[Rfam]
RNA: Oppression of Hydrophobic ORF by sRNA
Organism: Escherichia coli
RNA sequence: GUUGAGGGUGCAUGCUGCACAAAAUUAAAGUUAAAAAGUAAAACCCCCGUUCUUUACCAGUUCGGGGGUUUUACUUU
Numbered sequence: 001g002u003u004g005a006g007g008g009u010g011c012a013u014g015c016u017g018c019a020c021a022a023a024a025u026u027a028a029a030g031u032u033a034a035a036a037a038g039u040a041a042a043a044c045c046c047c048c049g050u051u052c053u054u055u056a057c058c059a060g061u062u063c064g065g066g067g068g069u070u071u072u073a074c075u076u077u
Stems, first nucleotide, its partner, number of pairs: 002028004008020005035077015